[Rfam]
RNA sequence: CUGUCCAGAGUGUGUUUGAUAAUCUGACAUGGGACAGAGGUUCUUUUCACUGUUGUGUCAGUUUAUCAAACCCAUACCUGGAU
Numbered sequence: 001c002u003g004u005c006c007a008g009a010g011u012g013u014g015u016u017u018g019a020u021a022a023u024c025u026g027a028c029a030u031g032g033g034a035c036a037g038a039g040g041u042u043c044u045u046u047u048c049a050c051u052g053u054u055g056u057g058u059c060a061g062u063u064u065a066u067c068a069a070a071c072c073c074a075u076a077c078c079u080g081g082a083u
Stems, first nucleotide, its partner, number of pairs: 003083005010075003014071009024061007033054005039047002

The family of this 83-nucleotide sequence from Monodelphis domestica is "mir-599 microRNA precursor family". It is one of the family's seed sequences. NCBI's taxonomy places the organism under Eukaryota, Dipnotetrapodomorpha, Amniota, Theria, Monodelphis. The base pairs follow the family's consensus structure, which was predicted with RNAalifold. A reference for the family is Yue et al. (2008), "Identification of novel homologous microRNA genes in the rhesus macaque genome", BMC Genomics.